[Rfam]
RNA sequence: GGCUUCGGGUGGCACGAGGCCCCGAUCCGGUCCGACCCUGGCGUACUUCCCCAACGCCAGGUGCGUGAUCGGGUCGGGACCUCGCUCCAUCCGGGCGCGGCA
Numbered sequence: 001g002g003c004u005u006c007g008g009g010u011g012g013c014a015c016g017a018g019g020c021c022c023c024g025a026u027c028c029g030g031u032c033c034g035a036c037c038c039u040g041g042c043g044u045a046c047u048u049c050c051c052c053a054a055c056g057c058c059a060g061g062u063g064c065g066u067g068a069u070c071g072g073g074u075c076g077g078g079a080c081c082u083c084g085c086u087c088c089a090u091c092c093g094g095g096c097g098c099g100g101c102a
Stems, first nucleotide, its partner, number of pairs: 010089003015084002018081002021078012033065002037061008
The family of this 102-nucleotide sequence from Gordonia sp. YY1 is "mraW RNA". A search with the family's covariance model found it, with a score of 63 bits.